[Rfam]
RNA sequence: GGAGACUUGAGAAGGGCUGUCCCUAGUACGAGAGGACCGGGACGGACGAACCUCUGGUGUGCCAGUUGUUCUGCCAAGAGCACCGCUGGUUGGCUACGUUCGGAAGUGAUAACCGCUGAAGGCAUCUAAGCGGGAAGCACGCUUCAAGAUGAGGUCUCCCACCGGGUCAACCGGGUAAGGCCCCCAGAAGACGACUGGGUUGAUAGGCCAGAUGUGGAAGCGAGGACUAACGACUCGUGAAGCUGACUGGUACUAAUAGGCCGAGG
Numbered sequence: 001g002g003a004g005a006c007u008u009g010a011g012a013a014g015g016g017c018u019g020u021c022c023c024u025a026g027u028a029c030g031a032g033a034g035g036a037c038c039g040g041g042a043c044g045g046a047c048g049a050a051c052c053u054c055u056g057g058u059g060u061g062c063c064a065g066u067u068g069u070u071c072u073g074c075c076a077a078g079a080g081c082a083c084c085g086c087u088g089g090u091u092g093g094c095u096a097c098g099u100u101c102g103g104a105a106g107u108g109a110u111a112a113c114c115g116c117u118g119a120a121g122g123c124a125u126c127u128a129a130g131c132g133g134g135a136a137g138c139a140c141g142c143u144u145c146a147a148g149a150u151g152a153g154g155u156c157u158c159c160c161a162c163c164g165g166g167u168c169a170a171c172c173g174g175g176u177a178a179g180g181c182c183c184c185c186a187g188a189a190g191a192c193g194a195c196u197g198g199g200u201u202g203a204u205a206g207g208c209c210a211g212a213u214g215u216g217g218a219a220g221c222g223a224g225g226a227c228u229a230a231c232g233a234c235u236c237g238u239g240a241a242g243c244u245g246a247c248u249g250g251u252a253c254u255a256a257u258a259g260g261c262c263g264a265g266g
Base pairs, nucleotide, nucleotide: 001159002158003157004156005155006154007153008152011145012144013143014142017045018044019043020042021041022040023039047102048101049100050099051098055096056095057094062089063088064087065086066085067082068081069080070079071078072077106140107139108138113133114132115131116130117129162174163173164172176264179262180261181260182259183199184198185197186196187195204255205254206253207251208250209249210248211247214243220238221237222236223235224234
The record is a 266-nucleotide part of an RNA from Actinopolymorpha singaporensis, which matches "Bacterial large subunit ribosomal RNA" in Rfam. It scores 2784 bits against the family's covariance model.